[Rfam]
RNA: Small nucleolar RNA snR60/Z15/Z230/Z193/J17
Organism: Carya illinoinensis
RNA sequence: CGGGGUCGUGUGAUGAACAAUAGCAUAGUUCAGAUGAUACUCUGUGAUUAUCACAUCUCACGUCUUUCGCUCCUAUCUGAUGACCCAG
Numbered sequence: 001c002g003g004g005g006u007c008g009u010g011u012g013a014u015g016a017a018c019a020a021u022a023g024c025a026u027a028g029u030u031c032a033g034a035u036g037a038u039a040c041u042c043u044g045u046g047a048u049u050a051u052c053a054c055a056u057c058u059c060a061c062g063u064c065u066u067u068c069g070c071u072c073c074u075a076u077c078u079g080a081u082g083a084c085c086c087a088g
Stems, first nucleotide, its partner, number of pairs: 004085005